[Rfam]
Nucleotides: 054
Stems, first nucleotide, its partner, number of pairs: 013043001014041003021035005
Number, partner (000 for none) and nucleotide at each position: 001000a002000a003000u004000u005000g006000g007000a008000u009000g010000c011000a012000a013043u014041g015040u016039a017000a018000g019000u020000c021035g022034c023033u024032c025031u026000g027000g028000a029000u030000a031025a032024g033023a034022g035021c036000u037000u038000c039016u040015g041014c042000u043013a044000a045000a046000u047000g048000c049000c050000u051000g052000u053000a054000a

Rfam assigns this 54-nucleotide RNA sequence from Anguilla anguilla to the family "UnaL2 LINE 3' element". By type it is a cis-regulatory element. The family has 30 seed sequences and 493,311 matches in Rfam 15.1. The base pairs follow the family's consensus structure, which is taken from published work.